[Rfam]
RNA sequence: UCCUAGCCCUGAUGGAAGCGAUAUCCUUUAGUGUCUCUUUUUUAGAGACACUAAAGAUAUAGCGGACAGCAGGACAACUG
Numbered sequence: 001u002c003c004u005a006g007c008c009c010u011g012a013u014g015g016a017a018g019c020g021a022u023a024u025c026c027u028u029u030a031g032u033g034u035c036u037c038u039u040u041u042u043u044a045g046a047g048a049c050a051c052u053a054a055a056g057a058u059a060u061a062g063c064g065g066a067c068a069g070c071a072g073g074a075c076a077a078c079u080g
Stems, first nucleotide, its partner, number of pairs: 009072003013068002018063002023058003029053010
RNA: Flavo-1 RNA
Organism: Flavobacterium sp. A45